[Rfam]
Rfam assigns this 121-nucleotide RNA from Klebsiella pneumoniae to the family "Histidine operon leader". By type it is a cis-regulatory leader. NCBI's taxonomy places the organism under Bacteria, Pseudomonadati, Enterobacteriaceae, Klebsiella, Klebsiella pneumoniae complex. About the family: At least 6 amino acid operons are known to be regulated by attenuation. The sequence is in the family's curated seed alignment. The base pairs follow the family's consensus structure, which is taken from published work.
RNA sequence: CCAUCAUCACCAUCAUCCUGACUAGUCUUUCAGGGCAUGUGUGCUGGAAGACGUUUGGAUCUUCCAGUGGUGCAUGAACGCAAAGAGCCCCCGGAAGAUUCGCUUCCGGGGGCUUUUUUUU
Dot-bracket structure: .......((((((...(((((........)))))..))).)))((((((((........))))))))..............((((((((((((((((.....))))))))))))))))...